[Rfam]
RNA: PyrR binding site
RNA sequence: CGACCCUUUUAAGCGCAGUCCCGUGAGGCUGCAAAAGGGGCGGAAUCGUUUCGGCUGUUUCUGCACCCUCUUUGCGUCUUCGCGGGCAAAGAGGGAUUUUUUU
Numbered sequence: 001c002g003a004c005c006c007u008u009u010u011a012a013g014c015g016c017a018g019u020c021c022c023g024u025g026a027g028g029c030u031g032c033a034a035a036a037g038g039g040g041c042g043g044a045a046u047c048g049u050u051u052c053g054g055c056u057g058u059u060u061c062u063g064c065a066c067c068c069u070c071u072u073u074g075c076g077u078c079u080u081c082g083c084g085g086g087c088a089a090a091g092a093g094g095g096a097u098u099u100u101u102u103u
Base pairs, nucleotide, nucleotide: 004039005038006037007036008035009034015032016031017030018029019028020027042061043060044059045058046057048055049054063098066095067094068093069092070091071090072089073088074087075086